[Rfam]
The family of this 131-nucleotide RNA from Carlito syrichta is "Small nucleolar RNA SNORA63". NCBI's taxonomy places the organism under Eukaryota, Deuterostomia, Teleostomi, Tarsiidae, Carlito. A search with the family's covariance model found it, with a score of 108 bits. E3 belongs to the H/ACA class of snoRNAs and is involved in the processing of eukaryotic pre-rRNA and has regions of complementarity to 18S rRNA. E3 is encoded in introns in the gene for protein synthesis initiation factor 4AII. Rfam classes the family as an H/ACA-box small nucleolar RNA.
RNA sequence: AAGCAAGAUUCAGACUACAAUAUAGCUGUUAAGUGUGUGCUGUCAUUCCCCCUGCUCAAAAUAAAGGUGUUUCUUAACCAUACCUGUCUGUAAUAGUUCUGUAGCAGUAAGGGACACUUGGUCUCAUACAU
Numbered sequence: 001a002a003g004c005a006a007g008a009u010u011c012a013g014a015c016u017a018c019a020a021u022a023u024a025g026c027u028g029u030u031a032a033g034u035g036u037g038u039g040c041u042g043u044c045a046u047u048c049c050c051c052c053u054g055c056u057c058a059a060a061a062u063a064a065a066g067g068u069g070u071u072u073c074u075u076a077a078c079c080a081u082a083c084c085u086g087u088c089u090g091u092a093a094u095a096g097u098u099c100u101g102u103a104g105c106a107g108u109a110a111g112g113g114a115c116a117c118u119u120g121g122u123c124u125c126a127u128a129c130a131u
Base pairs, nucleotide, nucleotide: 003055004054005053007051017043018042019041021039022038023037024036026035083112084111085110088107089106090105091104